[Rfam]
RNA sequence: GGAAGUGCACGGCCCGCUGGUGCGGCCCCCGGUCUUCAAAACCGGUGUGGGGUGCGUGAGCGCCCUGGGCAGGUUCGAUUCCUGUGCAUUUCC
Numbered sequence: 001g002g003a004a005g006u007g008c009a010c011g012g013c014c015c016g017c018u019g020g021u022g023c024g025g026c027c028c029c030c031g032g033u034c035u036u037c038a039a040a041a042c043c044g045g046u047g048u049g050g051g052g053u054g055c056g057u058g059a060g061c062g063c064c065c066u067g068g069g070c071a072g073g074u075u076c077g078a079u080u081c082c083u084g085u086g087c088a089u090u091u092c093c
Stems, first nucleotide, its partner, number of pairs: 001093009012027001014025004029045005048067005070084004

Record summary
Shown here is a 93-nucleotide RNA sequence from Pseudenhygromyxa sp. WMMC2535, a member of the family "Selenocysteine transfer RNA". A search with the family's covariance model found it, with a score of 78 bits. The family has 109 seed sequences and 4,211 matches in Rfam 15.1. Its Rfam clan is "tRNA clan".